[Rfam]
RNA sequence: UGGUGAUAUCUCCUUUCCACUAUCAAUGGAGGUACUCGGUCAUGCUGUGGGUUUGAAGAAACCUUAGAUGCUAGUCAUCAAAAGUGUGGUGUGAGGACGGGUUAAAUGCCCA
Numbered sequence: 001u002g003g004u005g006a007u008a009u010c011u012c013c014u015u016u017c018c019a020c021u022a023u024c025a026a027u028g029g030a031g032g033u034a035c036u037c038g039g040u041c042a043u044g045c046u047g048u049g050g051g052u053u054u055g056a057a058g059a060a061a062c063c064u065u066a067g068a069u070g071c072u073a074g075u076c077a078u079c080a081a082a083a084g085u086g087u088g089g090u091g092u093g094a095g096g097a098c099g100g101g102u103u104a105a106a107u108g109c110c111c112a
Stems, first nucleotide, its partner, number of pairs: 001019003007034007035095004039090008049064006067079004099111004

The record is a 112-nucleotide sequence from Halalkalibacter akibai, which matches "epsC RNA" in Rfam. The family has 30 seed sequences and 450 matches in Rfam 15.1. It scores 108 bits against the family's covariance model.